SAH (S-adenosyl-L-homocysteine) riboswitch aptamer: a 121-nucleotide RNA from Bordetella pertussis.
NCBI's taxonomy places the organism under Bacteria, Pseudomonadota, Burkholderiales, Alcaligenaceae, Bordetella pertussis.
Pairs were carried over by alignment from the consensus structure, which is taken from published work.
The literature on the family includes a 2008 paper in Mol Cell by Wang et al., "Riboswitches that sense S-adenosylhomocysteine and activate genes involved in coenzyme recycling".

[Rfam]
RNA sequence: AUUCCUGAGGAGCGCUGCGACGACCCGGGCCGUGUCCACGGCAUGCCGGUCGCCAGGCUCAGGAAAUCCUUGUUCACGCGCCGCACAUCGCGCGGCGCCGCAGCAACGGCGCUCACCUUUG
Numbered sequence: 001a002u003u004c005c006u007g008a009g010g011a012g013c014g015c016u017g018c019g020a021c022g023a024c025c026c027g028g029g030c031c032g033u034g035u036c037c038a039c040g041g042c043a044u045g046c047c048g049g050u051c052g053c054c055a056g057g058c059u060c061a062g063g064a065a066a067u068c069c070u071u072g073u074u075c076a077c078g079c080g081c082c083g084c085a086c087a088u089c090g091c092g093c094g095g096c097g098c099c100g101c102a103g104c105a106a107c108g109g110c111g112c113u114c115a116c117c118u119u120u121g
Base pairs, nucleotide, nucleotide: 002065003064004063005062006061007060008059021052022051023050024049025048